Rfam assigns this 96-nucleotide sequence from Oxalicibacterium solurbis to the family "Burkholderia RNA 7 (anti-hemB)".
Rfam's curators write: This RNA motif was identified by computational search in b-proteobacteria Burkholderia.
The source organism's lineage runs through Bacteria, Pseudomonadati, Pseudomonadota, Betaproteobacteria and Oxalicibacterium.
RNA sequence: UCUCCCGCUUCUCCUCCCUGAGCGGGGCCGCAUCGCUACCAUAGCGAUAUGGCGUUAUUGCCCUGGAGAUACUCCCCUUUCUCCAGGGCUUUUUUU
Numbered sequence: 001u002c003u004c005c006c007g008c009u010u011c012u013c014c015u016c017c018c019u020g021a022g023c024g025g026g027g028c029c030g031c032a033u034c035g036c037u038a039c040c041a042u043a044g045c046g047a048u049a050u051g052g053c054g055u056u057a058u059u060g061c062c063c064u065g066g067a068g069a070u071a072c073u074c075c076c077c078u079u080u081c082u083c084c085a086g087g088g089c090u091u092u093u094u095u096u
Stems, first nucleotide, its partner, number of pairs: 004026006027053004033047005060089010
For this family Rfam cites "Computational discovery and RT-PCR validation of novel Burkholderia conserved and Burkholderia pseudomallei unique sRNAs" (Khoo et al., BMC Genomics, 2012). Gene Ontology terms of the family: bacterial biofilm matrix and protein binding. The match comes from Rfam's covariance-model search (57 bits).